This 60-nucleotide sequence from Ictalurus punctatus belongs to the Rfam family "mir-1 microRNA precursor family". The family has 137 seed sequences and 4,474 matches in Rfam 15.1. Gene Ontology terms of the family: miRNA-mediated post-transcriptional gene silencing and RISC complex. Lineage of the source: Eukaryota > Bilateria > Vertebrata > Gnathostomata > Ictalurus. From the family's description: This family represents the microRNA (miRNA) mir-1 family. miRNAs are transcribed as ~70nt precursors (modelled here) and subsequently processed by the Dicer enzyme to give a ~22nt product. In this case the mature sequence comes from the 3' arm of the precursor. The extents of the hairpin precursors are not generally known and are estimated based on hairpin prediction. The products are thought to have regulatory roles through complementarity to mRNA. The involvement of Dicer in miRNA processing suggests a relationship with the phenomenon of RNA interference. miRNAs are numbered based on the sequence of the mature RNA. This family also contains the mir-206 from human, which appears to be related to mir-1. It is one of the family's seed sequences.
RNA sequence: ACAUACUUCCUUAUAUCCCCAUAUUCAGAAUUAAUCUAUGGAAUGUAAGGAAGUGUGUGG
Numbered sequence: 001a002c003a004u005a006c007u008u009c010c011u012u013a014u015a016u017c018c019c020c021a022u023a024u025u026c027a028g029a030a031u032u033a034a035u036c037u038a039u040g041g042a043a044u045g046u047a048a049g050g051a052a053g054u055g056u057g058u059g060g
Base pairs, nucleotide, nucleotide: 001058002057003056004055005054006053007052008051009050010049011048012047013046014045015044016043019041020040021039022038023037